[Rfam]
Nucleotides: 062
Stems, first nucleotide, its partner, number of pairs: 035059008045050001
Number, partner (000 for none) and nucleotide at each position: 001000a002000g003000c004000u005000a006000u007000u008000a009000a010000a011000g012000c013000u014000c015000u016000u017000u018000u019000a020000g021000a022000a023000u024000u025000u026000u027000c028000u029000u030000u031000a032000g033000c034000a035059g036058g037057u038056u039055u040054u041053c042052u043000u044000a045050u046000u047000u048000u049000g050045g051000u052042g053041g054040a055039a056038a057037a058036c059035c060000c061000a062000a